[Rfam]
MIR7486 microRNA precursor family: an 87-nucleotide RNA from Gossypium harknessii. Pairs were carried over by alignment from the consensus structure, which was predicted with RNAalifold.

RNA sequence: CUCAAGGAAGUGCUUUGUCCACAUGAACACAAAACGCAUCCUUGAAGGCGCGCUUUGUGUCCACGUGGACAAAGCGCUUCCUUGAGG
Number, nucleotide and partner (000 for none) at each position: 001c086002u085003c084004a083005a082006g081007g080008a079009a078010g077011u076012g075013c074014u073015u072016u071017g070018u069019c068020c067021a066022c000023a000024u063025g062026a000027a060028c059029a058030c057031a056032a055033a054034a000035c052036g051037c050038a000039u000040c047041c000042u000043u000044g000045a000046a000047g040048g000049c000050g037051c036052g035053c000054u033055u032056u031057g030058u029059g028060u027061c000062c025063a024064c000065g000066u021067g020068g019069a018070c017071a016072a015073a014074g013075c012076g011077c010078u009079u008080c007081c006082u005083u004084g003085a002086g001087g000

Lineage of the source: Eukaryota > Magnoliopsida > Mesangiospermae > eudicotyledons > Gossypium. Its family is annotated with miRNA-mediated post-transcriptional gene silencing and RISC complex in the Gene Ontology. Rfam 15.1 lists 10,132 matches to the family in 36 species.